[Rfam]
RNA sequence: AAAGGAGCAAUAAUUUCCUUCUUAAUCUCUUAAGAUGAGAGGGUCUUAUUGCUUCUUUAUUU
Dot-bracket structure: (((((((((((((.....((((((......))))).....)....)))))))))))))....